[Rfam]
RNA: Fluoride riboswitch aptamer (crcB RNA motif)
RNA sequence: UUAACGGAUGGGGAUGGAGUUCCCCGACAACCGCCGAAAAGGCUGAUGACUCCUACGAACUC
Numbered sequence: 001u002u003a004a005c006g007g008a009u010g011g012g013g014a015u016g017g018a019g020u021u022c023c024c025c026g027a028c029a030a031c032c033g034c035c036g037a038a039a040a041g042g043c044u045g046a047u048g049a050c051u052c053c054u055a056c057g058a059a060c061u062c
Stems, first nucleotide, its partner, number of pairs: 010025004016053006033043003